[Rfam]
RNA: Streptomyces sRNA 4677
Organism: Streptomyces sp. IB201691-2A2
RNA sequence: CAGACCGGUCCCGCACGACAUCAAAGCUCUUCAAAGAACUUCGGGAGAGAACCCCACCAAACCCAACCCGACCCUCCGCGUCAGGGCCGCGCCAGGCACCUCGUCAGCACCGCGAGGCCGAGUCGCCCACAAGGGUGACAAUCGCCAACUCAGCUGGAUUUCCGUCCGGUUGGCGGGCAUAUGCUCGCCCCGCGACAACCGAGAACAACCAGCAAGCCAAGCAGCAAGACAACUUCAGAACAUGCGACGGCCCUCGCCGGGAGUGCAAUCCCGAUCGAGGGCCUGACCACCGAGGAAGAUAGGACCUUCCCG
Number, nucleotide and partner (000 for none) at each position: 001c000002a000003g000004a000005c000006c000007g291008g290009u289010c000011c000012c000013g000014c000015a000016c112017g111018a000019c000020a000021u000022c000023a000024a000025a000026g000027c000028u000029c000030u000031u000032c000033a000034a000035a000036g000037a000038a000039c000040u000041u000042c000043g000044g000045g000046a000047g000048a000049g000050a000051a000052c000053c000054c000055c000056a000057c000058c000059a000060a000061a000062c000063c000064c000065a000066a000067c000068c000069c000070g000071a000072c000073c000074c000075u000076c000077c000078g000079c000080g000081u000082c000083a000084g000085g000086g000087c000088c000089g000090c000091g000092c000093c000094a000095g000096g000097c000098a000099c000100c000101u000102c000103g000104u000105c000106a000107g000108c000109a000110c000111c017112g016113c000114g000115a000116g000117g000118c000119c000120g000121a000122g000123u138124c137125g136126c135127c134128c133129a000130c000131a000132a000133g128134g127135g126136u125137g124138a123139c000140a000141a000142u000143c000144g000145c000146c000147a000148a000149c000150u000151c000152a000153g222154c221155u219156g218157g217158a000159u000160u000161u000162c000163c000164g000165u000166c000167c000168g000169g000170u000171u000172g000173g000174c000175g000176g000177g000178c000179a000180u000181a000182u000183g000184c000185u000186c000187g000188c000189c000190c000191c000192g000193c000194g000195a000196c000197a000198a000199c000200c000201g000202a000203g000204a000205a000206c000207a000208a000209c000210c000211a000212g000213c000214a000215a000216g000217c157218c156219a155220a000221g154222c153223a000224g000225c000226a000227a000228g000229a000230c000231a000232a000233c000234u000235u000236c000237a000238g000239a000240a000241c000242a000243u000244g000245c000246g000247a000248c000249g283250g282251c281252c280253c279254u000255c277256g276257c000258c000259g272260g271261g270262a269263g000264u000265g000266c000267a000268a000269u262270c261271c260272c259273g000274a000275u000276c256277g255278a000279g253280g252281g251282c250283c249284u000285g000286a000287c000288c000289a009290c008291c007292g000293a000294g310295g309296a308297a307298g306299a000300u000301a000302g000303g000304a000305c000306c298307u297308u296309c295310c294311c000312g000